The record is a 171-nucleotide RNA sequence from Caulobacter sp., which matches "caulobacter sRNA CC2171" in Rfam. A reference for the family is Landt et al. (2008), "Small non-coding RNAs in Caulobacter crescentus", Mol Microbiol.
RNA sequence: CAACAUCUGAAAGGAGGUGACCAGUGUCUCAUUGUCUCCAACCGAGGUCGCGAGUGACCUGGAGCCUGAAGAACGAGGUUUCCAACUGAGGGCGUUGCACGCCUAAGGUUCGAGUCACGCCGCGAUGCGGCUACGACGAUGGAGGGCUGUUUCGAGUAAUCGGGACGGCCC
Numbered sequence: 001c002a003a004c005a006u007c008u009g010a011a012a013g014g015a016g017g018u019g020a021c022c023a024g025u026g027u028c029u030c031a032u033u034g035u036c037u038c039c040a041a042c043c044g045a046g047g048u049c050g051c052g053a054g055u056g057a058c059c060u061g062g063a064g065c066c067u068g069a070a071g072a073a074c075g076a077g078g079u080u081u082c083c084a085a086c087u088g089a090g091g092g093c094g095u096u097g098c099a100c101g102c103c104u105a106a107g108g109u110u111c112g113a114g115u116c117a118c119g120c121c122g123c124g125a126u127g128c129g130g131c132u133a134c135g136a137c138g139a140u141g142g143a144g145g146g147c148u149g150u151u152u153c154g155a156g157u158a159a160u161c162g163g164g165a166c167g168g169c170c171c
Stems, first nucleotide, its partner, number of pairs: 016022002030141007043062001046059005063079001065077001080114003085109003091103004119131005144171012